[Rfam]
RNA sequence: GCCCUGUGCUCCGAACUGCCUCCGUAUGGAGUGCGUGCCCGCUUCAGGCGGGAUAGGACACAGGGCCGUU
Numbered sequence: 001g002c003c004c005u006g007u008g009c010u011c012c013g014a015a016c017u018g019c020c021u022c023c024g025u026a027u028g029g030a031g032u033g034c035g036u037g038c039c040c041g042c043u044u045c046a047g048g049c050g051g052g053a054u055a056g057g058a059c060a061c062a063g064g065g066c067c068g069u070u
Base pairs, nucleotide, nucleotide: 001066002065003064004063005062006061007060008059010058011057012056017035018034019033020031021030022029023028038052039051040050041049

Notes:
DUF3800-IX RNA: a 70-nucleotide RNA sequence. From the family's description: Actinobacteria, Firmicutes (1 example), Nitrospirae, Proteobacteria, Verrucomicrobia (1 example). Pairs were carried over by alignment from the consensus structure, which is taken from published work.